Rfam assigns this 75-nucleotide sequence from Tatumella morbirosei to the family "Enterobacterial sRNA STnc240".

RNA sequence: UCUGUUUUGGGCAAAAUGCGCGUCUGCAAAUUUGAAAAUAACCGACGCCUUUCCUGGCAUCGGUUAUUUUUUUUG
Numbered sequence: 001u002c003u004g005u006u007u008u009g010g011g012c013a014a015a016a017u018g019c020g021c022g023u024c025u026g027c028a029a030a031u032u033u034g035a036a037a038a039u040a041a042c043c044g045a046c047g048c049c050u051u052u053c054c055u056g057g058c059a060u061c062g063g064u065u066a067u068u069u070u071u072u073u074u075g
Base pairs, nucleotide, nucleotide: 011021012020039066040065041064042063043062044061045060047058